[Rfam]
RNA sequence: UUCAAAGGAGCUUCUGCUAAGUUCGGUCACGUCCUCGAAACAGCAAUGCUGUUUCUGUGUAGUAAUGCUACGAAGUAUUACUUAGUGUGACCAACGCAGAAGUUAGCACAUCCUGUGCG
Dot-bracket structure: ..........(((((((........(((((((....................................................)))))))....)))))))...((((.....)))).
RNA: Bacillaceae-1 RNA